[Rfam]
RNA sequence: UCCACUGCGAAGUGGAAUCUGAAGGAAGCUGGAGGCAAACACUCGCGCUGACGAACAGAAACCUCAUAGGAAGGCUGGAUUGGGACGGAUGAGCUUGCCAAACAAAGCAAAGUCCAAUACUGCCCGAAUCCCAUACAGUAAAUGAGGCAGCGGCAUGAGUGGAAGGUUAUCACU
Numbered sequence: 001u002c003c004a005c006u007g008c009g010a011a012g013u014g015g016a017a018u019c020u021g022a023a024g025g026a027a028g029c030u031g032g033a034g035g036c037a038a039a040c041a042c043u044c045g046c047g048c049u050g051a052c053g054a055a056c057a058g059a060a061a062c063c064u065c066a067u068a069g070g071a072a073g074g075c076u077g078g079a080u081u082g083g084g085a086c087g088g089a090u091g092a093g094c095u096u097g098c099c100a101a102a103c104a105a106a107g108c109a110a111a112g113u114c115c116a117a118u119a120c121u122g123c124c125c126g127a128a129u130c131c132c133a134u135a136c137a138g139u140a141a142a143u144g145a146g147g148c149a150g151c152g153g154c155a156u157g158a159g160u161g162g163a164a165g166g167u168u169a170u171c172a173c174u
Base pairs, nucleotide, nucleotide: 001016002015003014004013005012006011028174030172031171032170035167036166040161041160042159043158044157045156046152047151048150049149050148062147063146064145065144066143067142074139075138076137081133082132083131084130085129087115088114089113090112093108094107095106096105